[Rfam]
RNA sequence: CCUUAAAUUUCUUAAGCAGCAAAUAAUGAUUUGCAUCUUUGCUAUCACAUACAAAUCAUGAUGUGCUGCUAGAGUACUUUAAGG
Numbered sequence: 001c002c003u004u005a006a007a008u009u010u011c012u013u014a015a016g017c018a019g020c021a022a023a024u025a026a027u028g029a030u031u032u033g034c035a036u037c038u039u040u041g042c043u044a045u046c047a048c049a050u051a052c053a054a055a056u057c058a059u060g061a062u063g064u065g066c067u068g069c070u071a072g073a074g075u076a077c078u079u080u081a082a083g084g
Base pairs, nucleotide, nucleotide: 001084002083003082004081005080006079013072015070016069017068018067019066020065021064023062024061026059027058028057029056030055031054032053033052035050036049
RNA: mir-15 microRNA precursor family
Organism: Sphenodon punctatus